Overview: The record is a 78-nucleotide RNA from Candidatus Atelocyanobacterium thalassae, which matches "Cyano-1 RNA" in Rfam. The match comes from Rfam's covariance-model search (43 bits).

[Rfam]
RNA sequence: UAGUGUGUAAGGAGUAAGAGUGACUUGAAAAGGUCCCUGAAGUCGAAACAUGGCAAGACGUUCUGGACCUUUUCUUUU
Numbered sequence: 001u002a003g004u005g006u007g008u009a010a011g012g013a014g015u016a017a018g019a020g021u022g023a024c025u026u027g028a029a030a031a032g033g034u035c036c037c038u039g040a041a042g043u044c045g046a047a048a049c050a051u052g053g054c055a056a057g058a059c060g061u062u063c064u065g066g067a068c069c070u071u072u073u074c075u076u077u078u
Stems, first nucleotide, its partner, number of pairs: 028073005035066002039063003042059003
Taxonomically the source falls in Candidatus Atelocyanobacterium thalassae (Bacteria, Bacillati, Cyanophyceae, Candidatus Atelocyanobacterium).